[Rfam]
RNA sequence: GGUUCUGAGUAAUCGCGGCUAGCUCAAGUUAGCUGAGGAAAGUCCACUCUCGCACAAGCUGAGAUGCUUGUAGUGUUCGCGCUUGGUGAAAAAAUAAGCCAAGGGGUUAUAUUUAAUAACCAUGGCGGAAGAAAAAGCUAAGGUUCUACUAUGCUUAAGUAUUCAUGAAAGUGCCACAGUGACGAAUGAUAGAAGAAAUUCUAUUGAUGGAACGCGGUAAACCCCACGAGCGGGAAACCCAAAUUAAUGGUAGGGGAGCUUCACACACGGAAAUUCAACCAAGUGUGGGGGAAUUAUAAUUAAUUUUAUAGUUCAGAUAGAUGAUUACUGCUUUAUUAAAGUGCCCCUGACAUCUUAAUAAAGUACGGAACAUGGCUUAUAGGA
Numbered sequence: 001g002g003u004u005c006u007g008a009g010u011a012a013u014c015g016c017g018g019c020u021a022g023c024u025c026a027a028g029u030u031a032g033c034u035g036a037g038g039a040a041a042g043u044c045c046a047c048u049c050u051c052g053c054a055c056a057a058g059c060u061g062a063g064a065u066g067c068u069u070g071u072a073g074u075g076u077u078c079g080c081g082c083u084u085g086g087u088g089a090a091a092a093a094a095u096a097a098g099c100c101a102a103g104g105g106g107u108u109a110u111a112u113u114u115a116a117u118a119a120c121c122a123u124g125g126c127g128g129a130a131g132a133a134a135a136a137g138c139u140a141a142g143g144u145u146c147u148a149c150u151a152u153g154c155u156u157a158a159g160u161a162u163u164c165a166u167g168a169a170a171g172u173g174c175c176a177c178a179g180u181g182a183c184g185a186a187u188g189a190u191a192g193a194a195g196a197a198a199u200u201c202u203a204u205u206g207a208u209g210g211a212a213c214g215c216g217g218u219a220a221a222c223c224c225c226a227c228g229a230g231c232g233g234g235a236a237a238c239c240c241a242a243a244u245u246a247a248u249g250g251u252a253g254g255g256g257a258g259c260u261u262c263a264c265a266c267a268c269g270g271a272a273a274u275u276c277a278a279c280c281a282a283g284u285g286u287g288g289g290g291g292a293a294u295u296a297u298a299a300u301u302a303a304u305u306u307u308a309u310a311g312u313u314c315a316g317a318u319a320g321a322u323g324a325u326u327a328c329u330g331c332u333u334u335a336u337u338a339a340a341g342u343g344c345c346c347c348u349g350a351c352a353u354c355u356u357a358a359u360a361a362a363g364u365a366c367g368g369a370a371c372a373u374g375g376c377u378u379a380u381a382g383g384a
Base pairs, nucleotide, nucleotide: 004384005383006382007380008329009328010327011326012325013324014323016035017034018033019032020031021030040378041377042376044375045374046373049234050233051232052231053230054071055070056069057068058067059066077229078228079227081225082103083102084101085100086099087098104123105121106120107119108118109117110116124224125223128164129163130162135156136155137154138153142150143149144148171222172221173218174217175216187206188205189204190203191202192201193200194199238255239254240253259290260289261288262287263286264285265284291314292313293312294311295310296309297308298307299306331363332362333361334360335359336358337357338356339355

Bacterial RNase P class B: a 384-nucleotide RNA sequence from Philodulcilactobacillus myokonensis. By type it is a ribozyme. Rfam links the family to the GO terms dimeric ribonuclease P complex, tRNA processing and ribonuclease P activity.